[Rfam]
RNA sequence: AAAAAGGGUCGGUUGGCUAUGUAUGUCACACACAUCUAUUAAUUGAUGGUCGUUGUAUGGUUAUCAAUGCAUAUGGCCGACAUAAUUUAUGGAUGAUUUUGGGUUGGCUUUCUUGGCUAACUCUUAA
Numbered sequence: 001a002a003a004a005a006g007g008g009u010c011g012g013u014u015g016g017c018u019a020u021g022u023a024u025g026u027c028a029c030a031c032a033c034a035u036c037u038a039u040u041a042a043u044u045g046a047u048g049g050u051c052g053u054u055g056u057a058u059g060g061u062u063a064u065c066a067a068u069g070c071a072u073a074u075g076g077c078c079g080a081c082a083u084a085a086u087u088u089a090u091g092g093a094u095g096a097u098u099u100u101g102g103g104u105u106g107g108c109u110u111u112c113u114u115g116g117c118u119a120a121c122u123c124u125u126a127a
Base pairs, nucleotide, nucleotide: 008081009080010079011078012077014028015027016026017025029052033048034047035046036045038043053076054075055074056073057072058071059070099126101124102123103121104120105119106118107117108116109115
Dot-bracket structure: .......(((((.((((.......))))(...((((.(....).))))...)(((((((..........)))))))))))).................(.(((((((((.....))))))).)).).

Background: A member of the RNA family "U11 spliceosomal RNA" from Dendrobium nobile, 127 nucleotides long. NCBI's taxonomy places the organism under Eukaryota, Embryophyta, Petrosaviidae, Epidendroideae, Dendrobium.